Shown here is a 71-nucleotide RNA from Capsicum annuum, a member of the family "MIR8041 microRNA precursor family".
A search with the family's covariance model found it, with a score of 81 bits.
Gene Ontology terms of the family: miRNA-mediated post-transcriptional gene silencing and RISC complex.
Pairs were carried over by alignment from the consensus structure, which was predicted with RNAalifold.
The organism belongs to Capsicum, within Eukaryota.
RNA sequence: GAACUUUUUUAUUCUCAUUGACUUCAAAAUAUCGUGAUAUUGAGAAUUCAAUGAUGUAUAACAAGGAGCCU
Number, nucleotide and partner (000 for none) at each position: 001g069002a000003a000004c066005u065006u064007u063008u000009u061010u060011a059012u058013u000014c000015u054016c053017a052018u051019u050020g049021a048022c000023u046024u045025c044026a000027a000028a041029a040030u039031a038032u037033c000034g000035u000036g000037a032038u031039a030040u029041u028042g000043a000044g025045a024046a023047u000048u021049c020050a019051a018052u017053g016054a015055u000056g000057u000058a012059u011060a010061a009062c000063a007064a006065g005066g004067a000068g000069c001070c000071u000